[Rfam]
A member of the RNA family "glmS glucosamine-6-phosphate activated ribozyme aptamer" from Desulfosporosinus sp. HMP52, 159 nucleotides long.

RNA sequence: CAAUAUCUUAAAGCGCCAGGACCUUUCUAUUAAUGGUAAGGUCGACGAGGAAGAGGGUUAUCGAAGUAUUCGGCGGAUCCCUCUCGGUGGCUUGUCACCGUAAAGCUUGCUCAAAACCAAAGAGUAAUUUUUGGGACAAAGGUAAAGCUGUCAAGACAA
Numbered sequence: 001c002a003a004u005a006u007c008u009u010a011a012a013g014c015g016c017c018a019g020g021a022c023c024u025u026u027c028u029a030u031u032a033a034u035g036g037u038a039a040g041g042u043c044g045a046c047g048a049g050g051a052a053g054a055g056g057g058u059u060a061u062c063g064a065a066g067u068a069u070u071c072g073g074c075g076g077a078u079c080c081c082u083c084u085c086g087g088u089g090g091c092u093u094g095u096c097a098c099c100g101u102a103a104a105g106c107u108u109g110c111u112c113a114a115a116a117c118c119a120a121a122g123a124g125u126a127a128u129u130u131u132u133g134g135g136a137c138a139a140a141g142g143u144a145a146a147g148c149u150g151u152c153a154a155g156a157c158a159a
Base pairs, nucleotide, nucleotide: 020043021042022041023040024039025038027036029034052084053083054082055081056080061073062072063071064070085100086099087098088097089096104149105148106147107146108145117134118133119132120131121130122129123128
The match comes from Rfam's covariance-model search (107 bits).